A member of the RNA family "Bacterial large subunit ribosomal RNA", 455 nucleotides of a longer RNA. It scores 1388 bits against the family's covariance model. The family is grouped with related families in Rfam's "LSU clan". Pairs were carried over by alignment from the consensus structure, which is taken from published work. Gene Ontology terms of the family: ribosome and structural constituent of ribosome.
Nucleotides: 455
Stems, first nucleotide, its partner, number of pairs: 001393003004389003011025002013022003028133001029131002032128001034126001036124001038119008054105002060101002065096001070086001071084004139164002142161001144159005169179003184359003188356003194350001196348001203347001205346006223321001227319006234313003246307002249305001252277003257271003278284001285302001290300002361382001363380002366377002394450001397444001399442006406435001413431005419425002
Number, partner (000 for none) and nucleotide at each position: 001393c002392u003391c004389c005388c006387c007000u008000a009000a010000a011025u012024g013022c014021a015020u016000u017000u018000a019000g020015g021014u022013g023000g024012c025011a026000g027000g028133c029131g030130u031000g032128g033000u034126a035000u036124u037000a038119u039118u040117a041116u042115a043114u044113a045112g046000a047000g048000g049000u050000u051000a052000g053000a054105a055104g056000c057000u058000a059000c060101u061100g062000a063000u064000u065096g066000a067000u068000g069000c070086g071084g072083g073082g074081c075000u076000u077000c078000a079000c080000c081074g082073c083072c084071u085000a086070c087000c088000c089000a090000a091000u092000u093000u094000u095000c096065c097000u098000g099000a100061c101060a102000a103000a104055c105054u106000c107000g108000a109000a110000u111000g112045c113044u114043a115042u116041a117040u118039a119038a120000g121000g122000u123000g124036a125000u126034u127000c128032c129000a130030a131029c132000a133028g134000u135000g136000a137000g138000a139164g140163g141000c142161u143000u144159u145158g146157g147156g148155u149000g150000c151000u152000a153000a154000g155148g156147u157146c158145c159144a160000u161142g162000u163140c164139c165000g166000a167000g168000a169179g170178g171177g172000a173000a174000g175000a176000a177171c178170c179169c180000a181000g182000g183000a184359c185358a186357u187000c188356a189355g190354c191000u192000a193000g194350g195000u196348u197000c198000c199000c200000u201000a202000a203347a204000u205346a206345u207344a208343u209342g210341u211000a212000a213000u214000u215000g216000a217000a218000a219000g220000a221000a222000c223321g224000a225000g226000g227319u228318u229317u230316g231315u232314c233000u234313u235312g236311c237000c238000c239000a240000g241000g242000a243000c244000a245000a246307g247306c248000u249305a250000g251000g252277a253276u254275g255000u256000u257271g258270g259269u260000u261000g262000g263000a264000a265000g266000c267000c268000a269259g270258c271257c272000a273000u274000u275254c276253a277252u278284u279000u280000u281000a282000a283000a284278a285302g286000a287000g288000c289000u290300g291299c292000g293000u294000a295000a296000u297000c298000a299291g300290c301000u302285c303000a304000a305249u306247g307246u308000c309000g310000a311236g312235c313234g314232g315231a316230c317229a318228g319227a320000g321223c322000a323000u324000g325000a326000u327000a328000u329000a330000a331000u332000c333000g334000g335000g336000c337000a338000u339000a340000a341210g342209c343208a344207u345206a346205u347203u348196a349000c350194c351000g352000a353000a354190g355189c356188u357186a358185u359184g360000c361382g362000a363380u364379u365000u366377c367376a368000a369000g370000u371000u372000u373000a374000c375000g376367u377366g378000c379364a380363a381000g382361u383000g384000g385000u386000a387006g388005g389004g390000u391003g392002a393001g394450c395000g396000a397444u398000g399442u400441c401440u402439g403438a404437c405000g406435g407000g408000c409000a410000g411000a412000a413431g414430g415429u416428a417427u418000a419425u420424c421000g422000u423000a424420g425419g426000g427417a428416u429415g430414c431413u432000g433000g434000a435406c436000g437404g438403u439402c440401a441400g442399g443000g444397a445000a446000a447000a448000a449000a450394g451000a452000a453000a454000a455000u